Shown here is a 90-nucleotide RNA from Chlamydomonas reinhardtii, a member of the family "Selenocysteine transfer RNA". Pairs were carried over by alignment from the consensus structure, which is taken from published work. NCBI's taxonomy places the organism under Eukaryota, Viridiplantae, Chlorophyta, Chlorophyceae, Chlamydomonas. It is one of the family's seed sequences.

RNA sequence: GCCGCUGUGACCUUGGCGGGUGCUGAGUGCGGUCUUCAAAACCGUAGAGGCCGGGAGGCCUAGUGGUUCAUUUCCACCUCGGCGGCGCCA
Numbered sequence: 001g002c003c004g005c006u007g008u009g010a011c012c013u014u015g016g017c018g019g020g021u022g023c024u025g026a027g028u029g030c031g032g033u034c035u036u037c038a039a040a041a042c043c044g045u046a047g048a049g050g051c052c053g054g055g056a057g058g059c060c061u062a063g064u065g066g067u068u069c070a071u072u073u074c075c076a077c078c079u080c081g082g083c084g085g086c087g088c089c090a
Stems, first nucleotide, its partner, number of pairs: 001086007009078001012027006028046006048061005063077004